Record summary:
This 26-nucleotide sequence from Candidatus Arsenophonus nilaparvatae belongs to the Rfam family "L25-Gammaproteobacteria ribosomal protein leader". A reference for the family is Eckert and Weinberg (2020), "Discovery of 20 novel ribosomal leader candidates in bacteria and archaea", BMC Microbiol.
[Rfam]
RNA sequence: UCUGCCACUGGGUCGCCUGUUGCAGA
Numbered sequence: 001u002c003u004g005c006c007a008c009u010g011g012g013u014c015g016c017c018u019g020u021u022g023c024a025g026a
Base pairs, nucleotide, nucleotide: 001026002025003024004023005022007020008019010017011016
Pairs were carried over by alignment from the consensus structure, which is taken from published work. Taxonomically the source falls in Candidatus Arsenophonus nilaparvatae (Bacteria, Pseudomonadati, Pseudomonadota, Enterobacterales). Rfam's curators put it in the seed alignment.